[Rfam]
RNA: TPP riboswitch aptamer (THI element)
RNA sequence: GCUCUAUCCCCGGGGAGCCAGCUUGUGGCUGAGAGGGGCGGAUUAAGCGCCGCCCGACCCGUUGAACCUGAACCCGUUAGCACGGGCGGAGGGAAGGGCGGCCCGGGCAAG
Dot-bracket structure: ......(((.((((..((((.....))))......(((((..........)))))..)))).....(((...((((......))))...)))...))).............